Clostridiales-1 RNA: a 170-nucleotide sequence from Oribacterium sp. oral taxon 078.
Pairs were carried over by alignment from the consensus structure, which is taken from published work.
The source organism's lineage runs through Bacteria, Lachnospirales, Lachnospiraceae, Oribacterium and Oribacterium sp. oral taxon 078.
Rfam classes the family as a small RNA.
RNA sequence: UGAUUCCAGUGUCUAAAGUCUCUCCGACGCGACGUGCUCGCACGGCGGAGUCGGAGAGACUUUAAGACACGCCCCGGCAUGAGCACGAAGGGCUGCGAAGCAGAGCGGGAGUGCGAAUGCCGGGGGAGCAUGCUGAGAGCGCCGAAGACGCGAAAGCAUGCGGGGAAUCA
Number, nucleotide and partner (000 for none) at each position: 001u170002g169003a168004u167005u166006c165007c164008a000009g000010u069011g068012u067013c066014u000015a000016a062017a061018g060019u059020c058021u057022c056023u055024c054025c053026g052027a051028c050029g000030c048031g000032a000033c044034g043035u042036g041037c000038u000039c000040g000041c036042a035043c034044g033045g000046c000047g000048g030049a000050g028051u027052c026053g025054g024055a023056g022057a021058g020059a019060c018061u017062u016063u000064a000065a000066g013067a012068c011069a010070c000071g000072c000073c124074c123075c122076g121077g120078c119079a118080u117081g000082a000083g114084c113085a112086c111087g000088a000089a000090g106091g000092g000093c103094u102095g101096c100097g000098a000099a000100g096101c095102a094103g093104a000105g000106c090107g000108g000109g000110a000111g086112u085113g084114c083115g000116a000117a080118u079119g078120c077121c076122g075123g074124g073125g000126g000127a000128g161129c160130a159131u158132g157133c156134u155135g000136a000137g000138a000139g151140c150141g149142c000143c000144g000145a000146a000147g000148a000149c141150g140151c139152g000153a000154a000155a134156g133157c132158a131159u130160g129161c128162g000163g000164g007165g006166a005167a004168u003169c002170a001